[Rfam]
RNA sequence: GAUGUGGUUAAUGAUGCAUAAUCUUUUUUCCCCAUCUUAUCGACUAUGGUGAAAACCUUGCUGAAAUUAAGCCAAACAUGUCUGAAACCACAUC
Numbered sequence: 001g002a003u004g005u006g007g008u009u010a011a012u013g014a015u016g017c018a019u020a021a022u023c024u025u026u027u028u029u030c031c032c033c034a035u036c037u038u039a040u041c042g043a044c045u046a047u048g049g050u051g052a053a054a055a056c057c058u059u060g061c062u063g064a065a066a067u068u069a070a071g072c073c074a075a076a077c078a079u080g081u082c083u084g085a086a087a088c089c090a091c092a093u094c
Stems, first nucleotide, its partner, number of pairs: 001094009